[Rfam]
RNA: TPP riboswitch aptamer (THI element)
Organism: Halobacillus salinus
RNA sequence: AACAACUACUAGGGGAGCCUAAAUAGGCUGAGAAGAAGGAAAUCGAACCUUCUGACUCUUAUGAACCUGAUCUGGUUAAUACCAGCGGAGGGAAGUAGUUAGACGCACGA
Numbered sequence: 001a002a003c004a005a006c007u008a009c010u011a012g013g014g015g016a017g018c019c020u021a022a023a024u025a026g027g028c029u030g031a032g033a034a035g036a037a038g039g040a041a042a043u044c045g046a047a048c049c050u051u052c053u054g055a056c057u058c059u060u061a062u063g064a065a066c067c068u069g070a071u072c073u074g075g076u077u078a079a080u081a082c083c084a085g086c087g088g089a090g091g092g093a094a095g096u097a098g099u100u101a102g103a104c105g106c107a108c109g110a
Base pairs, nucleotide, nucleotide: 006098007097008096009095010094011059012058013057014056016053017028018027019026020025035052036051037050038049039048066091067090068089072085073084074083075082